[Rfam]
RNA sequence: UUCCUAUAUUUGGCUACACAAUGAAAAACUCUAUAUCAAAUACUUGGUGGUGGAUCAACUUACGAAAAACAUCGUGAGAAGAGCACUAUUGUAGUAUAACUAUAUAAAAAGGCUUGUC
Numbered sequence: 001u002u003c004c005u006a007u008a009u010u011u012g013g014c015u016a017c018a019c020a021a022u023g024a025a026a027a028a029c030u031c032u033a034u035a036u037c038a039a040a041u042a043c044u045u046g047g048u049g050g051u052g053g054a055u056c057a058a059c060u061u062a063c064g065a066a067a068a069a070c071a072u073c074g075u076g077a078g079a080a081g082a083g084c085a086c087u088a089u090u091g092u093a094g095u096a097u098a099a100c101u102a103u104a105u106a107a108a109a110a111g112g113c114u115u116g117u118c
Base pairs, nucleotide, nucleotide: 036099040097041096042095043094044093046090047089049087050086051085052084056081059078060077061076062072064070

This 118-nucleotide sequence from Arenibacter certesii belongs to the Rfam family "Bacteroidete tryptophan peptide leader RNA". Gene Ontology terms of the family: S-adenosylmethionine metabolic process and regulation of gene expression. Lineage of the source: Bacteria > Pseudomonadati > Flavobacteriia > Flavobacteriaceae > Arenibacter. It scores 62 bits against the family's covariance model.